Shown here is a 102-nucleotide RNA from Alkalithermobacter paradoxus, a member of the family "Purine riboswitch aptamer". Pairs were carried over by alignment from the consensus structure, which is taken from published work. A search with the family's covariance model found it, with a score of 84 bits. The literature on the family includes a 2004 paper in Nat Struct Mol Biol by Mandal and Breaker, "Adenine riboswitches and gene activation by disruption of a transcription terminator". Lineage of the source: Bacteria > Bacillati > Clostridia > Peptostreptococcales > Alkalithermobacter.
[Rfam]
RNA sequence: AGCUAAUAAGAAUACUUUUCUCAUAUAAUCCCGGUAAUAUGGUCUGGGAGUUUCUACAGAAGAGCCGUAAAUUCUUCUACUAUGAGCUGAAGUUUCCUUUUC
Numbered sequence: 001a002g003c004u005a006a007u008a009a010g011a012a013u014a015c016u017u018u019u020c021u022c023a024u025a026u027a028a029u030c031c032c033g034g035u036a037a038u039a040u041g042g043u044c045u046g047g048g049a050g051u052u053u054c055u056a057c058a059g060a061a062g063a064g065c066c067g068u069a070a071a072u073u074c075u076u077c078u079a080c081u082a083u084g085a086g087c088u089g090a091a092g093u094u095u096c097c098u099u100u101u102c
Base pairs, nucleotide, nucleotide: 020086021085022084023083024082025081029049030048031047032046033045034044058078059077060076061075062074063073064072